[Rfam]
RNA sequence: GCUUUACAGUGCAGUCUACGCUGUAGGGCCGUCUGCUGAUCUGCGUCCGUACGGCACGGGGCGCGAGAGACGAGAGGA
Numbered sequence: 001g002c003u004u005u006a007c008a009g010u011g012c013a014g015u016c017u018a019c020g021c022u023g024u025a026g027g028g029c030c031g032u033c034u035g036c037u038g039a040u041c042u043g044c045g046u047c048c049g050u051a052c053g054g055c056a057c058g059g060g061g062c063g064c065g066a067g068a069g070a071c072g073a074g075a076g077g078a
Stems, first nucleotide, its partner, number of pairs: 001029011031071004036067002042065007

This 78-nucleotide RNA sequence from Coriobacteriaceae bacterium BV3Ac1 belongs to the Rfam family "aspS RNA".
The family's consensus secondary structure is taken from published work.
Lineage of the source: Bacteria > Bacillati > Actinomycetota > Coriobacteriales > Coriobacteriaceae.
The match comes from Rfam's covariance-model search (68 bits).